Rfam assigns this 85-nucleotide sequence from Cebus imitator to the family "mir-512 microRNA precursor family". Taxonomically the source falls in Cebus (Eukaryota, Chordata, Eutheria, Cebidae). Rfam 15.1 lists 38 matches to the family in 23 species.
RNA sequence: UCUCAGUCUGUGGCACUCAGCCCUGAGGGCACUUUCUGGUGUCAGAAACGAAAGUGCCGUCAAGGCUGAGAGCCAAUGACUGAGG
Number, nucleotide and partner (000 for none) at each position: 001u000002c084003u083004c082005a081006g000007u079008c078009u000010g000011u075012g074013g073014c000015a000016c070017u069018c068019a067020g066021c065022c000023c000024u062025g061026a060027g000028g058029g057030c056031a055032c054033u053034u052035u051036c050037u000038g000039g000040u000041g000042u000043c000044a000045g000046a000047a000048a000049c000050g036051a035052a034053a033054g032055u031056g030057c029058c028059g000060u026061c025062a024063a000064g000065g021066c020067u019068g018069a017070g016071a000072g000073c013074c012075a011076a000077u000078g008079a007080c000081u005082g004083a003084g002085g000